[Rfam]
RNA sequence: GUGCAGACCGCAGCGCCAUUUUCAGAGCUAUAAGUGUGAACGGUGUCAUAGCUCUUUAAAUGGUACUGCUGUACGCAG
Numbered sequence: 001g002u003g004c005a006g007a008c009c010g011c012a013g014c015g016c017c018a019u020u021u022u023c024a025g026a027g028c029u030a031u032a033a034g035u036g037u038g039a040a041c042g043g044u045g046u047c048a049u050a051g052c053u054c055u056u057u058a059a060a061u062g063g064u065a066c067u068g069c070u071g072u073a074c075g076c077a078g
Base pairs, nucleotide, nucleotide: 002077003076004075007072008071011068012067013066015064016063017062018061019060020059021058024055025054026053027052028051029050030049031048